[Rfam]
The record is a 77-nucleotide RNA from Tabrizicola oligotrophica, which matches "chrB-a RNA" in Rfam. A search with the family's covariance model found it, with a score of 60 bits. The family has 163 seed sequences and 347 matches in Rfam 15.1.

Nucleotides: 077
Base pairs, nucleotide, nucleotide: 005025006024007023008022009021010020048071049070050069051068052067053066
Number, partner (000 for none) and nucleotide at each position: 001000a002000u003000c004000g005025u006024g007023g008022g009021g010020c011000c012000a013000a014000g015000c016000g017000a018000g019000c020010g021009c022008c023007u024006c025005g026000u027000g028000a029000g030000g031000c032000g033000u034000c035000a036000g037000g038000c039000c040000a041000a042000a043000g044000c045000g046000u047000c048071g049070c050069a051068u052067c053066c054000c055000c056000u057000c058000u059000u060000c061000u062000g063000a064000u065000c066053g067052g068051a069050u070049g071048c072000c073000c074000c075000a076000u077000g